[Rfam]
Nucleotides: 062
Base pairs, nucleotide, nucleotide: 009026010025011024012023013022032055033054034053035052036051037050038049039048
Number, partner (000 for none) and nucleotide at each position: 001000u002000g003000u004000c005000u006000c007000c008000u009026c010025c011024a012023c013022c014000u015000c016000u017000c018000a019000a020000a021000u022013g023012g024011u025010g026009g027000u028000u029000u030000c031000a032055a033054g034053c035052c036051c037050c038049u039048g040000a041000u042000u043000c044000a045000c046000a047000u048039c049038a050037g051036g052035g053034g054033c055032u056000u057000u058000u059000u060000u061000u062000c
Betaproteobacteria toxic small RNA: a 62-nucleotide RNA from Comamonas sp. JNW. The base pairs follow the family's consensus structure, which was predicted with WAR. Rfam describes the family as follows. Overexpression in amino aid rich medium attenuates growth, suggesting role in repressing amino acid intake and metabolism.